A member of the RNA family "Lysine riboswitch aptamer" from Pusillibacter faecalis, 168 nucleotides long. Rfam links the family to the GO term lysine biosynthetic process. NCBI's taxonomy places the organism under Bacteria, Bacillota, Clostridia, Eubacteriales, Pusillibacter.

[Rfam]
RNA sequence: AAAUGAGAUAGAGGCGCGGAUGCGAUGGACCCACGGGAGCUGGCAGGCAGAGAAGGUGGGAAGGGCAAGUCCGCCGAAUUCCUUUUCCGGGCGCGGGAGAGGGAUGGGUUCCCAGGAAAGACCUGUGAAACUGUCCGCGGCAUUUGCCGCGGGUGCGCUAUCCGCUUA
Numbered sequence: 001a002a003a004u005g006a007g008a009u010a011g012a013g014g015c016g017c018g019g020a021u022g023c024g025a026u027g028g029a030c031c032c033a034c035g036g037g038a039g040c041u042g043g044c045a046g047g048c049a050g051a052g053a054a055g056g057u058g059g060g061a062a063g064g065g066c067a068a069g070u071c072c073g074c075c076g077a078a079u080u081c082c083u084u085u086u087c088c089g090g091g092c093g094c095g096g097g098a099g100a101g102g103g104a105u106g107g108g109u110u111c112c113c114a115g116g117a118a119a120g121a122c123c124u125g126u127g128a129a130a131c132u133g134u135c136c137g138c139g140g141c142a143u144u145u146g147c148c149g150c151g152g153g154u155g156c157g158c159u160a161u162c163c164g165c166u167u168a
Base pairs, nucleotide, nucleotide: 007162008161009160010159011158016074017073018072019071020070021069024066030059031058034056078105079104080103081102082101083100084099085098086097087096088095089094106132107131109129110128111127113125114124115123116122134153135152136151137150138149139148140147